[Rfam]
A member of the RNA family "tRNA" from Heterodermia speciosa, 72 nucleotides long. It scores 53 bits against the family's covariance model. The base pairs follow the family's consensus structure, which is taken from published work. Lineage of the source: Eukaryota > Opisthokonta > saccharomyceta > Physciaceae > Heterodermia.

RNA sequence: GGGGCCUUGGCGCAAUGGUAGCGUGUGUGAUUCCAGUCCACAAGGUUGUCUGUUCGAGUCAGGCAGGCCUCA
Numbered sequence: 001g002g003g004g005c006c007u008u009g010g011c012g013c014a015a016u017g018g019u020a021g022c023g024u025g026u027g028u029g030a031u032u033c034c035a036g037u038c039c040a041c042a043a044g045g046u047u048g049u050c051u052g053u054u055c056g057a058g059u060c061a062g063g064c065a066g067g068c069c070u071c072a
Stems, first nucleotide, its partner, number of pairs: 001071007010024004026042004048064005